This 54-nucleotide RNA sequence belongs to the Rfam family "UnaL2 LINE 3' element". On this family, see Baba et al., RNA 2004: "Solution structure of an RNA stem-loop derived from the 3' conserved region of eel LINE UnaL2". The base pairs follow the family's consensus structure, which is taken from published work. It is annotated as a cis-regulatory element.

RNA sequence: UGCACACAUGACUGUAAGUCGCUUUGGAUAAAAGCGUCUGCUAAAUGGCAUAUU
Numbered sequence: 001u002g003c004a005c006a007c008a009u010g011a012c013u014g015u016a017a018g019u020c021g022c023u024u025u026g027g028a029u030a031a032a033a034g035c036g037u038c039u040g041c042u043a044a045a046u047g048g049c050a051u052a053u054u
Stems, first nucleotide, its partner, number of pairs: 013043001014041003020036006